[Rfam]
RNA: SAM riboswitch aptamer (S box leader)
RNA sequence: GCCUUAUCAAGAGUGGUGGAGGAAUCAGGUCCUGUGAAGCCCGGCAACCUGUGUGCUGUAUUAUGCAGUUCGUCAAGGUGCCAAAUCCUGCGGUUAUUUCCGAAAGAUGAGGA
Dot-bracket structure: .(((((((....(.(((...(((..[[[[)))......))))((((.((.(((.................)))...))))))...(]]]](((......)))..)))))))).